This 362-nucleotide RNA from Caulobacter mirabilis belongs to the Rfam family "Alphaproteobacteria transfer-messenger RNA".
By type it is a non-coding RNA gene.
Bacterial tmRNA, also known as 10Sa RNA or SsrA, is named for its dual tRNA and mRNA-like properties. Its role is to liberate the mRNA from a stalled ribosome. To accomplish this part of the tmRNA is used as a reading frame that ends in a translation stop signal. The broken mRNA is replaced in the ribosome by the tmRNA and translation of the tmRNA leads to addition of a proteolysis tag to the incomplete protein enabling recognition by a protease. Recently a number of permuted tmRNA genes have been found encoded in two parts. tmRNAs have been identified in eubacteria and some chloroplasts but are absent from archaeal and eukaryote nuclear genomes.
The literature on the family includes a 1996 paper in RNA by Williams and Bartel, "Phylogenetic analysis of tmRNA secondary structure".
RNA sequence: CUUCUUUCCCCGGAAACCAUUCGUCCCUAUAUUGGAAUCGUCCGGGCUCGCUCGGACUAUGGGCAUAAACGAGCGUGUAAUAAGCGGACUGGACCCGGGUGCGAUUCCCGGCGGCUCCACCAAUACUCCUCCAGGUAUCGCUGGGGAGCGCGGGGCCGAUCAGCAUCGACAGACGUGUAAAGGCGUAUCUUUGUCCCGGCGUGGCUCACCGUUUCGGGCCAUUAAACUAAAUGCGAACGAUAACUUCGCUGAAGAGUACGCUGUCGCCGCGUAAUGCGGUGCUGGUGAACUCGCCUAUAAACUCCUAGGGGUUCAGAUCCCUAGGCGGGGCCCGGGGGAGCCUGGCAACAGAAUCCCCCACC
Numbered sequence: 001c002u003u004c005u006u007u008c009c010c011c012g013g014a015a016a017c018c019a020u021u022c023g024u025c026c027c028u029a030u031a032u033u034g035g036a037a038u039c040g041u042c043c044g045g046g047c048u049c050g051c052u053c054g055g056a057c058u059a060u061g062g063g064c065a066u067a068a069a070c071g072a073g074c075g076u077g078u079a080a081u082a083a084g085c086g087g088a089c090u091g092g093a094c095c096c097g098g099g100u101g102c103g104a105u106u107c108c109c110g111g112c113g114g115c116u117c118c119a120c121c122a123a124u125a126c127u128c129c130u131c132c133a134g135g136u137a138u139c140g141c142u143g144g145g146g147a148g149c150g151c152g153g154g155g156c157c158g159a160u161c162a163g164c165a166u167c168g169a170c171a172g173a174c175g176u177g178u179a180a181a182g183g184c185g186u187a188u189c190u191u192u193g194u195c196c197c198g199g200c201g202u203g204g205c206u207c208a209c210c211g212u213u214u215c216g217g218g219c220c221a222u223u224a225a226a227c228u229a230a231a232u233g234c235g236a237a238c239g240a241u242a243a244c245u246u247c248g249c250u251g252a253a254g255a256g257u258a259c260g261c262u263g264u265c266g267c268c269g270c271g272u273a274a275u276g277c278g279g280u281g282c283u284g285g286u287g288a289a290c291u292c293g294c295c296u297a298u299a300a301a302c303u304c305c306u307a308g309g310g311g312u313u314c315a316g317a318u319c320c321c322u323a324g325g326c327g328g329g330g331c332c333c334g335g336g337g338g339a340g341c342c343u344g345g346c347a348a349c350a351g352a353a354u355c356c357c358c359c360a361c362c
Stems, first nucleotide, its partner, number of pairs: 040057007061196005071189002073186004085175002089172003095111005112158007197211003202221003206217002328343004334359006